[Rfam]
Nucleotides: 068
Stems, first nucleotide, its partner, number of pairs: 004064005011058012025043002028041001029038002
Number, partner (000 for none) and nucleotide at each position: 001000g002000a003000u004064g005063g006062a007061u008060u009000u010000a011058a012057u013056u014055c015054a016053a017052u018051c019050c020049a021048u022047u023000a024000a025043c026042u027000u028041a029038a030037u031000u032000u033000u034000u035000a036000u037030g038029u039000a040000g041028u042026g043025g044000a045000u046000g047022g048021a049020u050019g051018g052017a053016u054015u055014g056013g057012a058011u059000g060008a061007a062006u063005u064004u065000u066000u067000u068000g

MIR5291 microRNA precursor family: a 68-nucleotide RNA from Lathyrus oleraceus. The family has 3 seed sequences and 168 matches in Rfam 15.1. Pairs were carried over by alignment from the consensus structure, which was predicted with RNAalifold. Rfam links the family to the GO terms miRNA-mediated post-transcriptional gene silencing and RISC complex.